[Rfam]
RNA sequence: CCAAAGGCUCUUUUCAGAGCCACCCACCUCUCCUAGAAGAGAGCUGU
Numbered sequence: 001c002c003a004a005a006g007g008c009u010c011u012u013u014u015c016a017g018a019g020c021c022a023c024c025c026a027c028c029u030c031u032c033c034u035a036g037a038a039g040a041g042a043g044c045u046g047u
Stems, first nucleotide, its partner, number of pairs: 006021006
The record is a 47-nucleotide RNA sequence from Rousettus aegyptiacus, which matches "Histone 3' UTR stem-loop" in Rfam. The family's consensus secondary structure is taken from published work. Rfam classes the family as a cis-regulatory element. The mRNAs of metazoan histone genes lack a poly-A tail. 3' end processing occurs at a site between a highly conserved stem-loop (modelled by this family) and a purine rich region around 20 nts downstream (the histone downstream element, or HDE). The stem-loop is bound by a 31 kDa stem-loop binding protein (SLBP - also termed the histone hairpin binding protein, or HBP). Together with U7 snRNA binding of the HDE, SLBP binding nucleate s the formation of the processing complex. The histone 3' UTR stem-loop is also involved in nucleocytoplasmic transport of the mRNA, and in stability regulation and translation efficiency in the cytoplasm. The source organism's lineage runs through Eukaryota, Opisthokonta, Craniata, Gnathostomata and Rousettus.